[Rfam]
RNA sequence: GUUUGGAUGUGAUGCCAAAACAGAAUAUCAGAGGCUUUCAGCACUGGUGAUAUUUUGCACGUCAGUCUGAUCCAAAA
Numbered sequence: 001g002u003u004u005g006g007a008u009g010u011g012a013u014g015c016c017a018a019a020a021c022a023g024a025a026u027a028u029c030a031g032a033g034g035c036u037u038u039c040a041g042c043a044c045u046g047g048u049g050a051u052a053u054u055u056u057g058c059a060c061g062u063c064a065g066u067c068u069g070a071u072c073c074a075a076a077a
Base pairs, nucleotide, nucleotide: 002076003075004074005073006072007071

Rfam assigns this 77-nucleotide RNA sequence from Populus trichocarpa to the family "Small nucleolar RNA Z122". The match comes from Rfam's covariance-model search (48 bits). For this family Rfam cites "The high diversity of snoRNAs in plants: identification and comparative study of 120 snoRNA genes from Oryza sativa" (Chen et al., Nucleic Acids Res, 2003). The family's RNA type in Rfam is C/D-box small nucleolar RNA. The source organism's lineage runs through Eukaryota, Magnoliopsida, Gunneridae, rosids and Populus.